[Rfam]
RNA: Small Cajal body specific RNA 8
RNA sequence: UGGGAAACAGAUACCUGGGCAGUGCUGAUCUGUGCUCUGCCCACCACUGGCUCUCCCUACAGCAUCCUUGCUCUCUGAUGACCGGGGUAUUAAGAGAUAUCGCCACGGACAGAUACGGAGUAGACACUA
Numbered sequence: 001u002g003g004g005a006a007a008c009a010g011a012u013a014c015c016u017g018g019g020c021a022g023u024g025c026u027g028a029u030c031u032g033u034g035c036u037c038u039g040c041c042c043a044c045c046a047c048u049g050g051c052u053c054u055c056c057c058u059a060c061a062g063c064a065u066c067c068u069u070g071c072u073c074u075c076u077g078a079u080g081a082c083c084g085g086g087g088u089a090u091u092a093a094g095a096g097a098u099a100u101c102g103c104c105a106c107g108g109a110c111a112g113a114u115a116c117g118g119a120g121u122a123g124a125c126a127c128u129a
Stems, first nucleotide, its partner, number of pairs: 002057004007052001016043003022037001024035002068123007082108003087101001